[Rfam]
RNA sequence: UGCUCUUUGUGUUCACAGUGGACCUUGAUUUAAUUUCAAUACAAUUAAGGCACGCGGUGAAUGCCAAGAGAG
Numbered sequence: 001u002g003c004u005c006u007u008u009g010u011g012u013u014c015a016c017a018g019u020g021g022a023c024c025u026u027g028a029u030u031u032a033a034u035u036u037c038a039a040u041a042c043a044a045u046u047a048a049g050g051c052a053c054g055c056g057g058u059g060a061a062u063g064c065c066a067a068g069a070g071a072g
Stems, first nucleotide, its partner, number of pairs: 003070004009064008018055003023050008
Dot-bracket structure: ..((((..((((((((.(((..((((((((............))))))))..))).))))))))..))))..